The family of this 589-nucleotide part of an RNA from Picrophilus oshimae is "Archaeal large subunit ribosomal RNA". Rfam 15.1 lists 2,955 matches to the family in 1,139 species. Gene Ontology terms of the family: structural constituent of ribosome and ribosome. Pairs were carried over by alignment from the consensus structure, which is taken from published work. NCBI's taxonomy places the organism under Archaea, Methanobacteriati, Thermoplasmatota, Thermoplasmata, Picrophilus oshimae.
RNA sequence: UACUGCUAAACUGUCUGGGGGAUGGUUUGGCUUGAGAGCCGAAGAAGGACGUGCCAAGCUGCGAAAUGCUCUGGGGAGGCGCAUGGAGCCUUAGAUCCAGAGAUCUCCGAAUGGGACUUCCUGAUUCACUCCGUAAGGAGAGGGCACCCCGGGAAUCGAAACAUCCUAGUACCGGGAGGAAAAGAAAUCAAUCGAGAUACCGUGAGUAAAGGCGAUCGAAAGCGGUAGAGGGCAAACCGAAUCCUACCCGAAAGGGCAAGGAGAUGUGGAGUAUGGACUUUCCCCAACGCCUCUUUUAUCGAUUCGAAUAAGCUGGGAAGCUUAGCCAUAGAGGGUGAUAGCCCCGUAGAAGAAGAUAAAAAGGCCAUGAGGGGAAGUAUCCUGAGUACCAUGCGUCGUUAUUCGCGUGGGAAUACGGGUGGCAUGAACAUCCAACCCUAAAUACAUCUCAAGUCCGAUAGCGAACAAGUACCGUGAGGGAAAACUGAAAAGCAACCCGGAAGGGCUGUGAAAAGAGCCUGAAACCAGACAGUGAAAACUUUAUAGGGCACUAAAGGGGUGAACCGAAAGGUGACCGGUGUCCUAUAGU
Numbered sequence: 001u002a003c004u005g006c007u008a009a010a011c012u013g014u015c016u017g018g019g020g021g022a023u024g025g026u027u028u029g030g031c032u033u034g035a036g037a038g039c040c041g042a043a044g045a046a047g048g049a050c051g052u053g054c055c056a057a058g059c060u061g062c063g064a065a066a067u068g069c070u071c072u073g074g075g076g077a078g079g080c081g082c083a084u085g086g087a088g089c090c091u092u093a094g095a096u097c098c099a100g101a102g103a104u105c106u107c108c109g110a111a112u113g114g115g116a117c118u119u120c121c122u123g124a125u126u127c128a129c130u131c132c133g134u135a136a137g138g139a140g141a142g143g144g145c146a147c148c149c150c151g152g153g154a155a156u157c158g159a160a161a162c163a164u165c166c167u168a169g170u171a172c173c174g175g176g177a178g179g180a181a182a183a184g185a186a187a188u189c190a191a192u193c194g195a196g197a198u199a200c201c202g203u204g205a206g207u208a209a210a211g212g213c214g215a216u217c218g219a220a221a222g223c224g225g226u227a228g229a230g231g232g233c234a235a236a237c238c239g240a241a242u243c244c245u246a247c248c249c250g251a252a253a254g255g256g257c258a259a260g261g262a263g264a265u266g267u268g269g270a271g272u273a274u275g276g277a278c279u280u281u282c283c284c285c286a287a288c289g290c291c292u293c294u295u296u297u298a299u300c301g302a303u304u305c306g307a308a309u310a311a312g313c314u315g316g317g318a319a320g321c322u323u324a325g326c327c328a329u330a331g332a333g334g335g336u337g338a339u340a341g342c343c344c345c346g347u348a349g350a351a352g353a354a355g356a357u358a359a360a361a362a363g364g365c366c367a368u369g370a371g372g373g374g375a376a377g378u379a380u381c382c383u384g385a386g387u388a389c390c391a392u393g394c395g396u397c398g399u400u401a402u403u404c405g406c407g408u409g410g411g412a413a414u415a416c417g418g419g420u421g422g423c424a425u426g427a428a429c430a431u432c433c434a435a436c437c438c439u440a441a442a443u444a445c446a447u448c449u450c451a452a453g454u455c456c457g458a459u460a461g462c463g464a465a466c467a468a469g470u471a472c473c474g475u476g477a478g479g480g481a482a483a484a485c486u487g488a489a490a491a492g493c494a495a496c497c498c499g500g501a502a503g504g505g506c507u508g509u510g511a512a513a514a515g516a517g518c519c520u521g522a523a524a525c526c527a528g529a530c531a532g533u534g535a536a537a538a539c540u541u542u543a544u545a546g547g548g549c550a551c552u553a554a555a556g557g558g559g560u561g562a563a564c565c566g567a568a569a570g571g572u573g574a575c576c577g578g579u580g581u582c583c584u585a586u587a588g589u
Stems, first nucleotide, its partner, number of pairs: 010533009024519001025485002029456002031453006038445001047108003050063003069102006078090003113122003129140004147178001148176005158165002188195002199226005210216001229439004237269003247256003279377004289365002303351003309324005327331001333345003389410007417433005472479002542587010556576002564571002
Dot-bracket structure: .........(((((((((.....(((..((((((((.(........((((((........))).....((((((...(((.......)))......))))))...)))....(((....)))......((((....))))......((((((.....((....))......))))).).........((....))...(((((......(.....).....)))))..((((....(((.......(((....)))..........))).........((((......((............(((...(((((......)))))..(...).(((.......)))...)))............))........))))...........(((((((........)))))))......(((((.......)))))..)))).....)..)))))).))...............((....))....)).................................).....)))))))))........((((((((((....((......((....))...)).))))))))))..